Annotation: The family of this 193-nucleotide sequence from Pseudogymnoascus sp. VKM F-4519 is "U2 spliceosomal RNA". NCBI's taxonomy places the organism under Eukaryota, Fungi, Ascomycota, Thelebolaceae, Pseudogymnoascus. Rfam's curators write: U2 is a small nuclear RNA (snRNA) component of the spliceosome (involved in pre-mRNA splicing). Complementary binding between U2 snRNA (in an area lying towards the 5' end but 3' to hairpin I) and the branchpoint sequence (BPS) of the intron results the bulging out of an unpaired adenosine, on the BPS, which initiates a nucleophilic attack at the intronic 5' splice site, thus starting the first of two transesterification reactions that mediate splicing. The base pairs follow the family's consensus structure, which is taken from published work. The family is grouped with related families in Rfam's "U2 clan". Rfam 15.1 lists 71,512 matches to the family in 2,642 species.
RNA sequence: UUAGCUCUCUUUGCCUAUUGGCUUAGAUCAAGUGUAGUAUCUGUUCUUUUCAGUUUAAUCUCUGAAAUUGUCCUAUUGGACAAAUCAAUGAUUAAAUCUAUUUUUGAAAUGAGUCUUGGGACCGCUGAGUUUACUCAUGUCCCAGGACACAGUGUCUCUGGUAUUACACUGCCUCCAGAUGACGCGACCUCAU
Number, nucleotide and partner (000 for none) at each position: 001u000002u000003a000004g000005c000006u000007c000008u027009c026010u025011u000012u000013g022014c021015c020016u000017a000018u000019u000020g015021g014022c013023u000024u000025a010026g009027a008028u000029c000030a000031a000032g000033u000034g000035u000036a000037g000038u000039a000040u000041c000042u000043g000044u000045u000046c000047u000048u067049u066050u065051c064052a063053g062054u000055u000056u000057a000058a000059u000060c000061u000062c053063u052064g051065a050066a049067a048068u083069u082070g081071u080072c079073c078074u000075a000076u000077u000078g073079g072080a071081c070082a069083a068084a000085u000086c000087a000088a000089u000090g000091a000092u000093u000094a000095a000096a000097u000098c000099u000100a000101u000102u000103u000104u000105u000106g000107a000108a000109a000110u000111g000112a000113g148114u147115c146116u145117u144118g143119g142120g141121a000122c000123c000124g000125c000126u137127g136128a135129g134130u000131u000132u000133a000134c129135u128136c127137a126138u000139g000140u000141c120142c119143c118144a117145g116146g115147a114148c113149a000150c000151a000152g185153u184154g183155u182156c181157u179158c178159u177160g176161g175162u000163a000164u000165u000166a000167c000168a000169c000170u000171g000172c000173c000174u000175c161176c160177a159178g158179a157180u000181g156182a155183c154184g153185c152186g000187a000188c000189c000190u000191c000192a000193u000